[Rfam]
RNA sequence: GCGCUGGGUUAGCUCAGUGGUUACUUCGUUCAACACUAUGCGGAAAUGUUGUCCCUCCCCUAACCGGGAUCAAACCACGGGCGCUGUCCAGCGUUUUG
Numbered sequence: 001g002c003g004c005u006g007g008g009u010u011a012g013c014u015c016a017g018u019g020g021u022u023a024c025u026u027c028g029u030u031c032a033a034c035a036c037u038a039u040g041c042g043g044a045a046a047u048g049u050u051g052u053c054c055c056u057c058c059c060c061u062a063a064c065c066g067g068g069a070u071c072a073a074a075c076c077a078c079g080g081g082c083g084c085u086g087u088c089c090a091g092c093g094u095u096u097u098g
Stems, first nucleotide, its partner, number of pairs: 002093006012082004017078004025074002028071001
Shown here is a 98-nucleotide RNA from Xiphophorus maculatus, a member of the family "Vault RNA".
The family's consensus secondary structure is taken from published work.
A reference for the family is Stadler et al. (2009), "Evolution of Vault RNAs", Mol Biol Evol.
This family of RNAs are found as part of the enigmatic vault ribonucleoprotein complex. The complex consists of a major vault protein (MVP), two minor vault proteins (VPARP and TEP1), and several small untranslated RNA molecules. It has been suggested that the vault complex is involved in drug resistance.
It scores 62 bits against the family's covariance model.